[Rfam]
RNA sequence: AUGAAAACAGGGGGAGAGACUGCUUUAUGCAGCGCCGAAGGAGCAAGCAAAAGUGCGAAUCUCUCAGGCAAAAGAACUCCUGUUGGACG
Numbered sequence: 001a002u003g004a005a006a007a008c009a010g011g012g013g014g015a016g017a018g019a020c021u022g023c024u025u026u027a028u029g030c031a032g033c034g035c036c037g038a039a040g041g042a043g044c045a046a047g048c049a050a051a052a053g054u055g056c057g058a059a060u061c062u063c064u065c066a067g068g069c070a071a072a073a074g075a076a077c078u079c080c081u082g083u084u085g086g087a088c089g
Base pairs, nucleotide, nucleotide: 006084007083008082009081010080011079012078013077020032021031022030023029034069035068036067037065038064041063042062043061047056048055